The record is a 252-nucleotide sequence from Trifolium subterraneum, which matches "MIR2655 microRNA precursor family" in Rfam. The family has 25 seed sequences and 892 matches in Rfam 15.1.

RNA sequence: CCCUUAUCUUUUAAAAGUUUCAAGUUGGUCCCUUAUCUUUAUUUUAAGUUUCAAGUUGGUCCCUUCCAUCAAUUUUUUAACUAUUUCCGUUAAAUUUGGACACGUGGCAAACUCAUUUGGACACAUGGCACACUUGGACAUAUGACACGUAUCCAAAUUUAAAGGUGGCAGUGAAAAAAUUGACGGAAGGGACCAACUUAAAACCUAAAAUAAAGAUAAGGGACUAAAUUGAAACUUUUAAAAGAUAAGGGA
Numbered sequence: 001c002c003c004u005u006a007u008c009u010u011u012u013a014a015a016a017g018u019u020u021c022a023a024g025u026u027g028g029u030c031c032c033u034u035a036u037c038u039u040u041a042u043u044u045u046a047a048g049u050u051u052c053a054a055g056u057u058g059g060u061c062c063c064u065u066c067c068a069u070c071a072a073u074u075u076u077u078u079a080a081c082u083a084u085u086u087c088c089g090u091u092a093a094a095u096u097u098g099g100a101c102a103c104g105u106g107g108c109a110a111a112c113u114c115a116u117u118u119g120g121a122c123a124c125a126u127g128g129c130a131c132a133c134u135u136g137g138a139c140a141u142a143u144g145a146c147a148c149g150u151a152u153c154c155a156a157a158u159u160u161a162a163a164g165g166u167g168g169c170a171g172u173g174a175a176a177a178a179a180u181u182g183a184c185g186g187a188a189g190g191g192a193c194c195a196a197c198u199u200a201a202a203a204c205c206u207a208a209a210a211u212a213a214a215g216a217u218a219a220g221g222g223a224c225u226a227a228a229u230u231g232a233a234a235c236u237u238u239u240a241a242a243a244g245a246u247a248a249g250g251g252a
Stems, first nucleotide, its partner, number of pairs: 002250007023229001025227001027225003031221013045207002

The base pairs follow the family's consensus structure, which was predicted with RNAalifold. The match comes from Rfam's covariance-model search (131 bits).